[Rfam]
RNA sequence: GUGUCUCCUGGAGUUCCUCUGAAGACUUCAAUCUUAAUUUAAUUUAAUUAUUAUUAUUAAUAAUUAAUAGCCUUCUUAUUGAAGUGUUUGGGGGAGCUCUUGGUGCCAC
Numbered sequence: 001g002u003g004u005c006u007c008c009u010g011g012a013g014u015u016c017c018u019c020u021g022a023a024g025a026c027u028u029c030a031a032u033c034u035u036a037a038u039u040u041a042a043u044u045u046a047a048u049u050a051u052u053a054u055u056a057u058u059a060a061u062a063a064u065u066a067a068u069a070g071c072c073u074u075c076u077u078a079u080u081g082a083a084g085u086g087u088u089u090g091g092g093g094g095a096g097c098u099c100u101u102g103g104u105g106c107c108a109c
Base pairs, nucleotide, nucleotide: 005105007103008102011099012098013097014096015095016094017093018092019091020090022089023088025085026084027083028082029081030080031079032078
RNA: mir-395 microRNA precursor family